The record is a 106-nucleotide sequence from Arthrobacter sp. Edens01, which matches "SAM riboswitch aptamer (S box leader)" in Rfam. Rfam links the family to the GO term regulation of gene expression.
[Rfam]
RNA sequence: UAACCAUCCAGAGCGGCUGAGAGACCUGGCUCCGUGACGCCGCAGCAACCCUUCUUCCGCGGGCAUACCCGCCGAAGAAGGGUGCUACCGCCAGGACCGAUGGAGA
Numbered sequence: 001u002a003a004c005c006a007u008c009c010a011g012a013g014c015g016g017c018u019g020a021g022a023g024a025c026c027u028g029g030c031u032c033c034g035u036g037a038c039g040c041c042g043c044a045g046c047a048a049c050c051c052u053u054c055u056u057c058c059g060c061g062g063g064c065a066u067a068c069c070c071g072c073c074g075a076a077g078a079a080g081g082g083u084g085c086u087a088c089c090g091c092c093a094g095g096a097c098c099g100a101u102g103g104a105g106a
Base pairs, nucleotide, nucleotide: 001106004103005102006101007100008099013043014042015041016040017039021032022031023030026094027093028092029091044086045085046084047083049082050081051080052079053078054077055076056075057074090098

About the family: The SAM riboswitch is found upstream of a number of genes which code for proteins involved in methionine or cysteine biosynthesis in Gram-positive bacteria.